RNA sequence: AACACAGAUGAUGAGUCUUGGGACUUAAUACUGACCUCAUGAUGUCUCUGAUGUGAGCUGAUGUGU
Numbered sequence: 001a002a003c004a005c006a007g008a009u010g011a012u013g014a015g016u017c018u019u020g021g022g023a024c025u026u027a028a029u030a031c032u033g034a035c036c037u038c039a040u041g042a043u044g045u046c047u048c049u050g051a052u053g054u055g056a057g058c059u060g061a062u063g064u065g066u
Stems, first nucleotide, its partner, number of pairs: 002066005
RNA: Small nucleolar RNA SNORD82
Organism: Salvator merianae